[Rfam]
RNA sequence: UUUUUGCAUCAAGAGUGGCAAAAUGCCCACCAACCGGCCUUUGAAAUAUCGUUGGCAGCGGUGGUAAAAAGAUGCGAGUGAGAUAAUAACCCACUAAAGAUUAACGAUAUG
Numbered sequence: 001u002u003u004u005u006g007c008a009u010c011a012a013g014a015g016u017g018g019c020a021a022a023a024u025g026c027c028c029a030c031c032a033a034c035c036g037g038c039c040u041u042u043g044a045a046a047u048a049u050c051g052u053u054g055g056c057a058g059c060g061g062u063g064g065u066a067a068a069a070a071g072a073u074g075c076g077a078g079u080g081a082g083a084u085a086a087u088a089a090c091c092c093a094c095u096a097a098a099g100a101u102u103a104a105c106g107a108u109a110u111g
Base pairs, nucleotide, nucleotide: 006075007074008073009072010071015028017027018026019025020024029065030064031063034061035060036059037056038055039054077095078094079093080092
The record is a 111-nucleotide sequence from Prevotella sp. tf2-5, which matches "SAM-I/IV (S-adenosyl methionine) riboswitch aptamer" in Rfam. Its family is annotated with regulation of gene expression and S-adenosylmethionine metabolic process in the Gene Ontology.